[Rfam]
RNA: FMN riboswitch aptamer (RFN element)
RNA sequence: UUAUAUCUUCAGGGCAGGGUGAAAUUCCCGAUCGGCGGUAAAGUCCGCGAACGCGUUACAGCGUGUUGAUUUGGUGCAAGUCCAAAACCGACAGUACAGUCUGGAUGAAAGAAGAUACCG
Numbered sequence: 001u002u003a004u005a006u007c008u009u010c011a012g013g014g015c016a017g018g019g020u021g022a023a024a025u026u027c028c029c030g031a032u033c034g035g036c037g038g039u040a041a042a043g044u045c046c047g048c049g050a051a052c053g054c055g056u057u058a059c060a061g062c063g064u065g066u067u068g069a070u071u072u073g074g075u076g077c078a079a080g081u082c083c084a085a086a087a088c089c090g091a092c093a094g095u096a097c098a099g100u101c102u103g104g105a106u107g108a109a110a111g112a113a114g115a116u117a118c119c120g
Stems, first nucleotide, its partner, number of pairs: 004117007017029003031100002033090002035048004043088002051066003070086005092103003